[Rfam]
Rfam assigns this 69-nucleotide RNA sequence to the family "Transposase-2 RNA".
The base pairs follow the family's consensus structure, which is taken from published work.
It is one of the family's seed sequences.
RNA sequence: GAAGUGCGAACCAAGCCGCGGCGACAACCGCGUAAGACUUGGAGUGGACGAGCGCAAGCACGUCCUACA
Numbered sequence: 001g002a003a004g005u006g007c008g009a010a011c012c013a014a015g016c017c018g019c020g021g022c023g024a025c026a027a028c029c030g031c032g033u034a035a036g037a038c039u040u041g042g043a044g045u046g047g048a049c050g051a052g053c054g055c056a057a058g059c060a061c062g063u064c065c066u067a068c069a
Stems, first nucleotide, its partner, number of pairs: 011042005018031004046065005052059002

Rfam classes the family as a small RNA.